[Rfam]
RNA sequence: CUUUAACAAUCUGGAACAAGCUGAAAAAUUGAAAACAAAUCAAUAUAUCACCGAGGUAUAUUGAUGAGUCUCUCAAAAUCUCAGACCUUGAAGUGUGAAACUCAAGACAAUUGUCUUCGAGAGAAACACCUUCGG
Numbered sequence: 001c002u003u004u005a006a007c008a009a010u011c012u013g014g015a016a017c018a019a020g021c022u023g024a025a026a027a028a029u030u031g032a033a034a035a036c037a038a039a040u041c042a043a044u045a046u047a048u049c050a051c052c053g054a055g056g057u058a059u060a061u062u063g064a065u066g067a068g069u070c071u072c073u074c075a076a077a078a079u080c081u082c083a084g085a086c087c088u089u090g091a092a093g094u095g096u097g098a099a100a101c102u103c104a105a106g107a108c109a110a111u112u113g114u115c116u117u118c119g120a121g122a123g124a125a126a127c128a129c130c131u132u133c134g135g
Stems, first nucleotide, its partner, number of pairs: 023082002026079001029077002036066002041063009089134003093130001094128002
The family of this 135-nucleotide RNA sequence from Proteus myxofaciens is "Salmonella enterica Typhi npcRNA 44". A search with the family's covariance model found it, with a score of 54 bits. The organism belongs to Proteus myxofaciens, within Bacteria. It is annotated as a non-coding RNA gene. Rfam 15.1 lists 474 matches to the family in 137 species.